[Rfam]
Nucleotides: 147
Stems, first nucleotide, its partner, number of pairs: 004023003008019001034051003039046001054066005080147005087142007096131002100128005106122002109119002
Number, partner (000 for none) and nucleotide at each position: 001000g002000u003000g004023c005022c006021u007000c008019a009000a010000u011000c012000u013000a014000u015000u016000g017000a018000g019008u020000a021006a022005g023004g024000a025000a026000a027000u028000u029000a030000u031000u032000g033000g034051g035050c036049c037000u038000u039046g040000g041000u042000a043000a044000c045000u046039c047000u048000u049036g050035g051034c052000a053000a054066u055065g056064u057063c058062c059000u060000a061000a062058g063057g064056g065055c066054g067000a068000a069000c070000c071000u072000a073000u074000u075000u076000u077000u078000g079000c080147u081146g082145g083144g084143u085000a086000c087142a088141g089140g090139a091138c092137g093136u094000c095000c096131c097130u098000u099000u100128g101127a102126g103125c104124c105000g106122c107121g108000c109119g110118c111000c112000u113000a114000c115000u116000u117000u118110g119109c120000a121107c122106g123000u124104g125103g126102u127101u128100c129000g130097g131096g132000u133000g134000a135000a136093g137092c138091g139090u140089u141088c142087u143084g144083c145082c146081u147080a

Shown here is a 147-nucleotide RNA from Leptidea sinapis, a member of the family "U12 minor spliceosomal RNA". Lineage of the source: Eukaryota > Aparaglossata > Amphiesmenoptera > Papilionoidea > Leptidea. The match comes from Rfam's covariance-model search (87 bits).